[Rfam]
RNA sequence: UCUAACUGAUAGUUCGAGGAGUGGAAUGAUCGGGUAACGCCGUGAAACGCUCCCUCUGAGACUACGGCAAAAAGGAAUGUUUGUAAUAACAAAUCCUUGAUGCAGCCCGUCGAAGUCGGCGGAAGUCUGCCCCAGCAAUUGUUGCUGUGGAAAUCGGCUUGGAGGCAAGCUGUGCAGAUGAUACGCC
Numbered sequence: 001u002c003u004a005a006c007u008g009a010u011a012g013u014u015c016g017a018g019g020a021g022u023g024g025a026a027u028g029a030u031c032g033g034g035u036a037a038c039g040c041c042g043u044g045a046a047a048c049g050c051u052c053c054c055u056c057u058g059a060g061a062c063u064a065c066g067g068c069a070a071a072a073a074g075g076a077a078u079g080u081u082u083g084u085a086a087u088a089a090c091a092a093a094u095c096c097u098u099g100a101u102g103c104a105g106c107c108c109g110u111c112g113a114a115g116u117c118g119g120c121g122g123a124a125g126u127c128u129g130c131c132c133c134a135g136c137a138a139u140u141g142u143u144g145c146u147g148u149g150g151a152a153a154u155c156g157g158c159u160u161g162g163a164g165g166c167a168a169g170c171u172g173u174g175c176a177g178a179u180g181a182u183a184c185g186c187c
Base pairs, nucleotide, nucleotide: 018053019052020051021050022049023048033041034040064110065109066108067107068102069101072098073097074096075095076094078092118187119186120185121184125179126178127177128176129175130174131150132149138146155172156171157170158169159168160167161166
Overview:
Shown here is a 187-nucleotide RNA from Desulfosporosinus metallidurans, a member of the family "Group II catalytic intron D1-D4-5". Gene Ontology term of the family: Group II intron splicing. The literature on the family includes a 2001 paper in EMBO J by Chu et al., "Control of branch-site choice by a group II intron". The match comes from Rfam's covariance-model search (125 bits). From the family's description: Group II introns are found in rRNA, tRNA and mRNA of organelles in fungi, plants and protists, and also in mRNA in bacteria.